The record is a 139-nucleotide sequence from Todus mexicanus, which matches "Small nucleolar RNA SNORA49" in Rfam.
RNA sequence: CUUCCUCAGCCUUACUCCAGGGGCUUUCGUUUUGUGUGGAGUGCCCUGGCAUUGCCUGAGGAUAAACUGAACCUACGCUCAUUUCCCUCCCCAGUAAGAUCCUCAGUGUUCUCCGGGGCCUGCAAUUUGAGCAAACAUG
Number, nucleotide and partner (000 for none) at each position: 001c000002u000003u062004c061005c060006u059007c058008a057009g056010c000011c054012u000013u000014a000015c000016u000017c049018c048019a047020g046021g045022g044023g042024c041025u040026u039027u038028c000029g000030u000031u000032u000033u000034g000035u000036g000037u000038g027039g026040a025041g024042u023043g000044c022045c021046c020047u019048g018049g017050c000051a000052u000053u000054g011055c000056c009057u008058g007059a006060g005061g004062a003063u000064a000065a000066a000067c000068u000069g000070a000071a000072c000073c000074u000075a000076c000077g132078c131079u000080c129081a128082u000083u000084u000085c000086c000087c000088u000089c118090c117091c116092c115093a000094g113095u000096a112097a000098g110099a109100u000101c000102c000103u000104c000105a000106g000107u000108g000109u099110u098111c000112u096113c094114c000115g092116g091117g090118g089119c000120c000121u000122g000123c000124a000125a000126u000127u000128u081129g080130a000131g078132c077133a000134a000135a000136c000137a000138u000139g000
The organism belongs to Todus, within Eukaryota. About the family: The snoRNA ACA49 has no identified RNA target. By type it is an H/ACA-box small nucleolar RNA. Pairs were carried over by alignment from the consensus structure, which was predicted with RNAalifold. The family has 21 seed sequences and 722 matches in Rfam 15.1.